A member of the RNA family "tpke11" from Shimwellia blattae, 77 nucleotides long.

[Rfam]
RNA sequence: UGCAGGGUAGAUAACUGGCACGGGCGUAGAGGAUUUUCCUCCACGCCCGUGCACGCAUGUGGAGCCGGAUACAGGCU
Number, nucleotide and partner (000 for none) at each position: 001u000002g000003c017004a016005g015006g000007g000008u000009a000010g000011a000012u000013a000014a000015c005016u004017g003018g052019c051020a050021c049022g048023g047024g046025c045026g044027u000028a000029g041030a040031g039032g000033a000034u000035u000036u000037u000038c000039c031040u030041c029042c000043a000044c026045g025046c024047c023048c022049g021050u020051g019052c018053a000054c000055g000056c000057a000058u000059g000060u000061g000062g000063a000064g000065c000066c000067g000068g000069a000070u000071a000072c000073a000074g000075g000076c000077u000
The match comes from Rfam's covariance-model search (50 bits). Pairs were carried over by alignment from the consensus structure, which was predicted with WAR. Lineage of the source: Bacteria > Enterobacterales > Enterobacteriaceae > Shimwellia > Shimwellia blattae. It is annotated as a small RNA. A reference for the family is Rivas et al. (2001), "Computational identification of noncoding RNAs in E. coli by comparative genomics", Curr Biol.